[Rfam]
RNA sequence: GGUCGCAAGUUUGAGGCCAUAGCAGAAGCACUCGCAAUGCAGUCCUGUCAGAUGAAUCCGUGAAUUCUGCU
Dot-bracket structure: ............[.[[[...((((((((((.......))).]]]]...(.((....)).)....)))))))
Numbered sequence: 001g002g003u004c005g006c007a008a009g010u011u012u013g014a015g016g017c018c019a020u021a022g023c024a025g026a027a028g029c030a031c032u033c034g035c036a037a038u039g040c041a042g043u044c045c046u047g048u049c050a051g052a053u054g055a056a057u058c059c060g061u062g063a064a065u066u067c068u069g070c071u
Stems, first nucleotide, its partner, number of pairs: 013045001015044003021071007028040003049060001051058002
The family of this 71-nucleotide sequence from Crocodylus porosus is "Mammalian CPEB3 ribozyme". Its family is annotated with RNA nuclease activity in the Gene Ontology. From the family's description: The mammalian CPEB3 ribozyme is a self cleaving RNA located in the second intron of the CPEB3 gene which belongs to a family of genes regulating messenger RNA polyadenylation. This ribozyme is highly conserved and found only in mammals. The CPEB3 ribozyme is structurally and biochemically related to the human hepatitis delta virus (HDV) ribozyme and the HDV ribozyme is proposed to have arisen from the human transcriptome. There is currently only one other known self cleaving ribozyme in mammals, the CoTC motif. The family's consensus secondary structure is taken from published work.